[Rfam]
RNA sequence: GAAUCCUUGUACAAAAUGUAGAAACUAGGAACCCAGGAAUUCCUAGUUUCUACAUUUUGUACAAGGAUCCC
Numbered sequence: 001g002a003a004u005c006c007u008u009g010u011a012c013a014a015a016a017u018g019u020a021g022a023a024a025c026u027a028g029g030a031a032c033c034c035a036g037g038a039a040u041u042c043c044u045a046g047u048u049u050c051u052a053c054a055u056u057u058u059g060u061a062c063a064a065g066g067a068u069c070c071c
Stems, first nucleotide, its partner, number of pairs: 003068010015056009025046003028042003